[Rfam]
RNA sequence: CUGCGCCUAGGAGAUGGCAUUCUCCUCAAGUGUCGGUCCUCCCCGGCUAAUGAUGCCUACCGGCUG
Numbered sequence: 001c002u003g004c005g006c007c008u009a010g011g012a013g014a015u016g017g018c019a020u021u022c023u024c025c026u027c028a029a030g031u032g033u034c035g036g037u038c039c040u041c042c043c044c045g046g047c048u049a050a051u052g053a054u055g056c057c058u059a060c061c062g063g064c065u066g
Stems, first nucleotide, its partner, number of pairs: 010025004016057006032047004
RNA: Fluoride riboswitch aptamer (crcB RNA motif)